A member of the RNA family "Hairpin ribozyme 1 from viruses-like metatranscriptomes", 184 nucleotides long. Gene Ontology term of the family: RNA nuclease activity.

RNA sequence: UCUCUGUCUCUGAUUCGGGAUUUGCUAAAUCCCAAGGCAUUGGUUCAGUGUGUCGUUGCUCAGGCCUUUCUACCUUAGUGGUGUUUGAUACCUGAGUGCUUCUUGCACUUGAUCCACCCGGAUCAGAAGAAGAUCUUCCAGGGAAACACACUUAGGAAUUGGCUUAAGUGGCACAUUAACUGGA
Dot-bracket structure: ..((....(((((((..........................((.((((............................................................)))).)).....)))))))....))...(((((.......(((((((........))))))).........)))))
Numbered sequence: 001u002c003u004c005u006g007u008c009u010c011u012g013a014u015u016c017g018g019g020a021u022u023u024g025c026u027a028a029a030u031c032c033c034a035a036g037g038c039a040u041u042g043g044u045u046c047a048g049u050g051u052g053u054c055g056u057u058g059c060u061c062a063g064g065c066c067u068u069u070c071u072a073c074c075u076u077a078g079u080g081g082u083g084u085u086u087g088a089u090a091c092c093u094g095a096g097u098g099c100u101u102c103u104u105g106c107a108c109u110u111g112a113u114c115c116a117c118c119c120g121g122a123u124c125a126g127a128a129g130a131a132g133a134u135c136u137u138c139c140a141g142g143g144a145a146a147c148a149c150a151c152u153u154a155g156g157a158a159u160u161g162g163c164u165u166a167a168g169u170g171g172c173a174c175a176u177u178a179a180c181u182g183g184a
Stems, first nucleotide, its partner, number of pairs: 003133002009127007042115002045112004137184005149170007